The family of this 111-nucleotide RNA sequence from Vigna radiata is "MIR394 microRNA precursor family".
RNA sequence: CUUGCAGAGUUUCUUGGCAUUCUGUCCACCUCCAUUUGAUGUAUGUUUCUUUCUCUUGCAUUUUUUCACCACUACGAGGAGGUGGACAUACUGCCAACAGAGCUGUGUUGG
Numbered sequence: 001c002u003u004g005c006a007g008a009g010u011u012u013c014u015u016g017g018c019a020u021u022c023u024g025u026c027c028a029c030c031u032c033c034a035u036u037u038g039a040u041g042u043a044u045g046u047u048u049c050u051u052u053c054u055c056u057u058g059c060a061u062u063u064u065u066u067c068a069c070c071a072c073u074a075c076g077a078g079g080a081g082g083u084g085g086a087c088a089u090a091c092u093g094c095c096a097a098c099a100g101a102g103c104u105g106u107g108u109u110g111g
Base pairs, nucleotide, nucleotide: 011101014097015096016095017094018093019092023088024087025086026085027084028083029082030081031080032079033078
Taxonomically the source falls in Vigna radiata (Eukaryota, Mesangiospermae, Fabales, Papilionoideae).
The base pairs follow the family's consensus structure, which was predicted with WAR.